Source information:
This 106-nucleotide sequence from Notothenia coriiceps belongs to the Rfam family "MIR4387 microRNA precursor family". Clan: MIR4387 microRNA precursor clan.

RNA sequence: GAGCGUCAUGUUACCAUGCUGUUACCAUGCCACGGCAACCUCUCAUUCCCCAGGGGAAUGAGAGGUUGCCGUGGCAUGGUAACAGCAUGGUAACAUGACGCUCGUA
Numbered sequence: 001g002a003g004c005g006u007c008a009u010g011u012u013a014c015c016a017u018g019c020u021g022u023u024a025c026c027a028u029g030c031c032a033c034g035g036c037a038a039c040c041u042c043u044c045a046u047u048c049c050c051c052a053g054g055g056g057a058a059u060g061a062g063a064g065g066u067u068g069c070c071g072u073g074g075c076a077u078g079g080u081a082a083c084a085g086c087a088u089g090g091u092a093a094c095a096u097g098a099c100g101c102u103c104g105u106a
Stems, first nucleotide, its partner, number of pairs: 003101019023081011035069016